[Rfam]
RNA: Acido-Lenti-1 RNA
RNA sequence: CCCGGCGAUGAAUCGCCGGGCUAUUUUCUUUUCGUCCCGUCGGGACG
Numbered sequence: 001c002c003c004g005g006c007g008a009u010g011a012a013u014c015g016c017c018g019g020g021c022u023a024u025u026u027u028c029u030u031u032u033c034g035u036c037c038c039g040u041c042g043g044g045a046c047g
Stems, first nucleotide, its partner, number of pairs: 001020008034046005